A member of the RNA family "Selenocysteine insertion sequence 1" from Pedionomus torquatus, 65 nucleotides long. Rfam's curators write: The incorporation of selenocysteine into a protein sequence is directed by an in-frame UGA codon (usually a stop codon) within the coding region of the mRNA. Selenoprotein mRNAs contain a conserved secondary structure in the 3' UTR that is required for the distinction of UGA stop from UGA selenocysteine. The selenocysteine insertion sequence (SECIS) is around 60 nt in length and adopts a hairpin structure which is sufficiently well-defined and conserved to act as a computational screen for selenoprotein genes. Lineage of the source: Eukaryota > Metazoa > Archosauria > Theropoda > Pedionomus. On this family, see Walczak et al., RNA 1996: "A novel RNA structural motif in the selenocysteine insertion element of eukaryotic selenoprotein mRNAs". A search with the family's covariance model found it, with a score of 40 bits.
RNA sequence: GUGUGUUUAUGAAGAUCGCUAACAAAAGAGUAAUAAACUCAGUUGGUGUUCCGAUGUUCUCACAC
Numbered sequence: 001g002u003g004u005g006u007u008u009a010u011g012a013a014g015a016u017c018g019c020u021a022a023c024a025a026a027a028g029a030g031u032a033a034u035a036a037a038c039u040c041a042g043u044u045g046g047u048g049u050u051c052c053g054a055u056g057u058u059c060u061c062a063c064a065c
Stems, first nucleotide, its partner, number of pairs: 001065005014051002017048007029039003